Shown here is a 110-nucleotide RNA from Idiomarina sp. A28L, a member of the family "Ribosomal S15 leader". A reference for the family is Benard et al. (1996), "Pseudoknot and translational control in the expression of the S15 ribosomal protein", Biochimie. Rfam classes the family as a cis-regulatory leader. The family's consensus secondary structure is taken from published work. Rfam's curators write: The E. coli Ribosomal S15 gene 5' UTR can form two alternative structures. A search with the family's covariance model found it, with a score of 84 bits. NCBI's taxonomy places the organism under Bacteria, Pseudomonadati, Pseudomonadota, Gammaproteobacteria, Idiomarina.
RNA sequence: CGCUUGGGCUGAAUUAGUGAUUGGCUCGGGCAUCAUUAAACUGGAGUAACAUUAUGUCACUAAAUGCAGAAACUAAAGCUCAGAUCGUAAAAGAUUUCGCACGUGCAGAA
Numbered sequence: 001c002g003c004u005u006g007g008g009c010u011g012a013a014u015u016a017g018u019g020a021u022u023g024g025c026u027c028g029g030g031c032a033u034c035a036u037u038a039a040a041c042u043g044g045a046g047u048a049a050c051a052u053u054a055u056g057u058c059a060c061u062a063a064a065u066g067c068a069g070a071a072a073c074u075a076a077a078g079c080u081c082a083g084a085u086c087g088u089a090a091a092a093g094a095u096u097u098c099g100c101a102c103g104u105g106c107a108g109a110a
Stems, first nucleotide, its partner, number of pairs: 007026006042062003046058001